Shown here is a 216-nucleotide sequence from Aliiroseovarius pelagivivens, a member of the family "FMN riboswitch aptamer (RFN element)".
Pairs were carried over by alignment from the consensus structure, which is taken from published work.
About the family: The RFN element is a highly conserved domain that is found frequently in the 5'-untranslated regions of prokaryotic mRNAs that encode for flavin mononucleotide (FMN) biosynthesis and transport proteins. This element is a metabolite-dependent riboswitch that directly binds FMN in the absence of proteins. In Bacillus subtilis, the riboswitch most likely controls gene expression by causing premature transcription termination within the 5' untranslated region of the ribDEAHT operon and precluding access to the ribosome-binding site of ypaA mRNA.The FMN riboswitch structure, reported in present an FMN-bound six-stem junction, adopts a butterfly-like scaffold, stapled together by opposingly directed but nearly identically folded peripheral domains.
It scores 110 bits against the family's covariance model.
[Rfam]
RNA sequence: UGACAUUCUCAGGGCGGGGUGAAAUUCCCCACCGGCGGUAAGUUUUUUUGCGGAGUCACAUCUGUGUGUCUCGCAAAUCAAACACACUUAGUUUGAAUUGCGAGGCCGUUGAGCCGCACAAAAAACAAAGCCCGCGAGCGGCCUCUUUGUGGGGUGACAGCAGAUCCGGUGUAACUCCGGAGCCGACGGUUAAAGUCCGGAUGGAAGAGAAUGGGU
Numbered sequence: 001u002g003a004c005a006u007u008c009u010c011a012g013g014g015c016g017g018g019g020u021g022a023a024a025u026u027c028c029c030c031a032c033c034g035g036c037g038g039u040a041a042g043u044u045u046u047u048u049u050g051c052g053g054a055g056u057c058a059c060a061u062c063u064g065u066g067u068g069u070c071u072c073g074c075a076a077a078u079c080a081a082a083c084a085c086a087c088u089u090a091g092u093u094u095g096a097a098u099u100g101c102g103a104g105g106c107c108g109u110u111g112a113g114c115c116g117c118a119c120a121a122a123a124a125a126c127a128a129a130g131c132c133c134g135c136g137a138g139c140g141g142c143c144u145c146u147u148u149g150u151g152g153g154g155u156g157a158c159a160g161c162a163g164a165u166c167c168g169g170u171g172u173a174a175c176u177c178c179g180g181a182g183c184c185g186a187c188g189g190u191u192a193a194a195g196u197c198c199g200g201a202u203g204g205a206a207g208a209g210a211a212u213g214g215g216u
Base pairs, nucleotide, nucleotide: 004213005212006211007210008209009208010207017029018028019027031196032195033185034184035135036134037133038132138161139160165181166180167179168178169177187199188198189197